[Rfam]
A member of the RNA family "Mammalian CPEB3 ribozyme" from Parnassius apollo, 76 nucleotides long. A search with the family's covariance model found it, with a score of 44 bits. Rfam's curators write: The mammalian CPEB3 ribozyme is a self cleaving RNA located in the second intron of the CPEB3 gene which belongs to a family of genes regulating messenger RNA polyadenylation. Pairs were carried over by alignment from the consensus structure, which is taken from published work.
RNA sequence: CAAAUAUAUAUGGGGAUCUUGUAGAAGCGUGAUCGUCGCGACCCCUGCCAGCCCUUUUCAGGGCUGCAAUUCUACA
Numbered sequence: 001c002a003a004a005u006a007u008a009u010a011u012g013g014g015g016a017u018c019u020u021g022u023a024g025a026a027g028c029g030u031g032a033u034c035g036u037c038g039c040g041a042c043c044c045c046u047g048c049c050a051g052c053c054c055u056u057u058u059c060a061g062g063g064c065u066g067c068a069a070u071u072c073u074a075c076a
Stems, first nucleotide, its partner, number of pairs: 012045004017040001020076007027039003049066007